[Rfam]
RNA sequence: GCCGAGCUUGGUAAUGUGAGGCUGUAACCCAUAUGGGGUAAAGAAGUGGUUGGAGGUUGGCUUAGCCCAUUGGUUAGGGUUGUUGGAGUUGUUCUUCGGCAUGUCCAUUCCAAGUAGGUAGUUAGGCUAUGGGCUUUGGGUGAAGGUUUAGUGUCCAUGGCCCUUAGAGUUUGAAGGAAACCGCGUGAGGCUGGUUGAUUUAACAGAGCAACCAUAACCUUCAGCUCUUGUCGAUGGAAGGAUAGCGGGUCAAUUUUCUUACGCCCAAUAUAAAUCUCUAGGUAGUCCUCAGCCUGACAUCCACUUUU
Dot-bracket structure: ((.(..((((......))))..)....(((....)))))..((((((((.((..((((((.(((..(.(..((((.((((((...(((..(....(.(((.(((((.(((((.(..((.(((..((((((((((.((((((....)))))).)))))))))).(....)..((((((.......((....(((..........)))....)).....))))))))).))..)..)))))))...))).))).)).))).)).))))......))))..).).))).)..))).))..)).))))))))

A member of the RNA family "Plant signal recognition particle RNA" from Cucurbita maxima, 308 nucleotides long. The family's RNA type in Rfam is non-coding RNA gene. The match comes from Rfam's covariance-model search (137 bits).